[Rfam]
RNA: mir-17 microRNA precursor family
Organism: Bagarius yarrelli
RNA sequence: UAGUGUGUGAUAAAGUGCUUACAGUGCAGGUAGUGUGUCUGUUUUCUACUGCAUUGUUGGCACUUGUGUCUCACACCU
Number, nucleotide and partner (000 for none) at each position: 001u000002a000003g000004u075005g074006u073007g072008u000009g070010a069011u068012a000013a065014a064015g063016u062017g061018c060019u059020u000021a057022c056023a055024g054025u053026g052027c051028a000029g050030g049031u048032a047033g046034u000035g000036u000037g000038u000039c000040u000041g000042u000043u000044u000045u000046c033047u032048a031049c030050u029051g027052c026053a025054u024055u023056g022057u021058u000059g019060g018061c017062a016063c015064u014065u013066g000067u000068g011069u010070c009071u000072c007073a006074c005075a004076c000077c000078u000